The record is an 88-nucleotide sequence from Leptobrachium leishanense, which matches "let-7 microRNA precursor family" in Rfam.
Taxonomically the source falls in Leptobrachium (Eukaryota, Opisthokonta, Gnathostomata, Pelobatoidea).
The family is grouped with related families in Rfam's "let-7 microRNA precursor clan".
Pairs were carried over by alignment from the consensus structure, which was predicted with RNAalifold.
Rfam links the family to the GO terms RISC complex and miRNA-mediated post-transcriptional gene silencing.
This family represents the microRNAs (miRNA) let-7 and mir-98. let-7 was identified from a study of developmental timing in C. elegans, and was later shown to be part of a much larger class of non-coding RNAs termed miRNAs.
[Rfam]
RNA sequence: GCAGGAUGAGGUAGUAGGUUGUGUGGUUUCAGGGUAGUAGUUUUUGCCCCAUUCAGGAGUUAACUAUACAACCUACUGCCUUCCCUGA
Numbered sequence: 001g002c003a004g005g006a007u008g009a010g011g012u013a014g015u016a017g018g019u020u021g022u023g024u025g026g027u028u029u030c031a032g033g034g035u036a037g038u039a040g041u042u043u044u045u046g047c048c049c050c051a052u053u054c055a056g057g058a059g060u061u062a063a064c065u066a067u068a069c070a071a072c073c074u075a076c077u078g079c080c081u082u083c084c085c086u087g088a
Stems, first nucleotide, its partner, number of pairs: 002087004008082020032049004052059002